[Rfam]
About this RNA:
This 597-nucleotide part of an RNA from Clostridium sp. 'deep sea' belongs to the Rfam family "Bacterial large subunit ribosomal RNA". Rfam links the family to the GO terms ribosome and structural constituent of ribosome. NCBI's taxonomy places the organism under Bacteria, Bacillati, Clostridia, Clostridiaceae, Clostridium.

Nucleotides: 597
Base pairs, nucleotide, nucleotide: 007548008547009546010545011544012543013542014541015540016539022533023498024497027469028468029466030465031464032463033462034461035460036458037457038174039173046108047107048106049062050061051060068102069101070100071099072098073097074096077089078088079087113122114121115120123141124140125139126138127137128136129135143171144170145168146167147166148165149164150163151162178209179207180206181205182204183203189196190195219226220225229454230257231256232255233254234253240248241247260451261450262449263448268285269284270283271282272281273280274279292393293392295388296387297386298385299384304382305381308378309377314372315371316370318366319365320364324339325338326337327336342346348360349359350358400424401423402422403421404420405419406418431445432444433443434442435441485492486491508519509518510517511516556579557578558577559576562573563572564571565570583596585594
Number, partner (000 for none) and nucleotide at each position: 001000a002000a003000a004000a005000a006000a007548g008547a009546g010545c011544a012543u013542a014541u015540g016539g017000c018000g019000g020000a021000u022533g023498c024497c025000u026000a027469g028468g029466c030465g031464c032463c033462a034461a035460g036458a037457g038174u039173c040000g041000a042000a043000g044000a045000a046108g047107g048106a049062c050061g051060u052000a053000g054000c055000c056000a057000g058000c059000a060051a061050c062049g063000a064000u065000a066000a067000g068102c069101u070100g071099u072098g073097g074096g075000g076000a077089g078088c079087u080000g081000c082000a083000a084000g085000c086000a087079a088078g089077c090000g091000u092000u093000a094000a095000a096074u097073c098072c099071a100070c101069a102068g103000a104000u105000u106048u107047c108046c109000g110000a111000a112000u113122g114121g115120g116000g117000a118000a119000a120115c121114c122113c123141a124140g125139u126138g127137g128136g129135u130000a131000g132000a133000a134000g135129g136128c137127c138126c139125a140124c141123u142000a143171c144170c145168g146167c147166u148165a149164a150163g151162u152000g153000a154000a155000c156000a157000a158000a159000a160000u161000a162151g163150c164149u165148u166147a167146g168145u169000a170144g171143g172000a173039g174038g175000c176000a177000a178209c179207c180206a181205g182204g183203a184000g185000a186000a187000c188000u189196g190195a191000a192000c193000c194000a195190u196189c197000u198000a199000a200000g201000u202000a203183u204182c205181c206180u207179g208000a209178g210000g211000a212000a213000g214000a215000g216000a217000a218000a219226g220225a221000a222000a223000c224000a225220u226219c227000g228000a229454u230257u231256c232255c233254c234253u235000g236000a237000g238000u239000a240248g241247c242000g243000g244000c245000g246000a247241g248240c249000g250000g251000a252000a253234g254233g255232g256231g257230a258000a259000g260451a261450g262449c263448c264000c265000a266000a267000a268285c269284c270283a271282a272281g273280u274279a275000c276000u277000u278000g279274u280273a281272c282271u283270u284269g285268g286000g287000g288000u289000u290000g291000a292393g293392g294000a295388c296387u297386c298385c299384a300000a301000u302000a303000a304382u305381c306000g307000a308378g309377u310000g311000g312000a313000a314372u315371c316370u317000a318366a319365u320364u321000g322000a323000a324339u325338g326337g327336g328000a329000a330000g331000g332000g333000a334000a335000g336327c337326c338325c339324a340000g341000c342346c343000g344000u345000a346342g347000a348360g349359c350358g351000u352000g353000a354000u355000a356000g357000c358350c359349g360348c361000g362000u363000a364320a365319a366318u367000g368000a369000a370316a371315g372314a373000g374000g375000a376000a377309g378308c379000a380000a381305g382304a383000g384299u385298g386297g387296a388295g389000u390000a391000u392293c393292c394000a395000g396000a397000g398000u399000a400424g401423u402422g403421c404420a405419g406418g407000a408000c409000a410000c411000g412000u413000g414000a415000a416000a417000c418406c419405c420404u421403g422402u423401a424400u425000g426000a427000a428000g429000c430000a431445g432444g433443g434442g435441g436000a437000c438000c439000a440000c441435c442434c443433c444432c445431c446000a447000a448263g449262g450261c451260u452000a453000a454229a455000u456000a457037c458036u459000c460035c461034u462033u463032g464031g465030c466029g467000a468028c469027c470000g471000a472000u473000a474000g475000u476000g477000a478000a479000g480000c481000a482000g483000u484000a485492c486491c487000g488000u489000g490000a491486g492485g493000g494000a495000a496000a497024g498023g499000u500000g501000a502000a503000a504000a505000g506000c507000a508519c509518c510517c511516c512000g513000g514000g515000a516511g517510g518509g519508g520000a521000g522000u523000g524000a525000a526000a527000u528000a529000g530000a531000a532000c533022c534000u535000g536000a537000a538000a539016c540015c541014a542013u543012a544011u545010g546009c547008u548007u549000a550000c551000a552000a553000u554000g555000a556579a557578u558577u559576c560000g561000a562573g563572c564571a565570c566000u567000a568000c569000g570565g571564u572563g573562u574000g575000a576559g577558a578557g579556u580000g581000u582000a583596c584000u585594u586000u587000u588000u589000g590000u591000a592000g593000a594585a595000c596583g597000g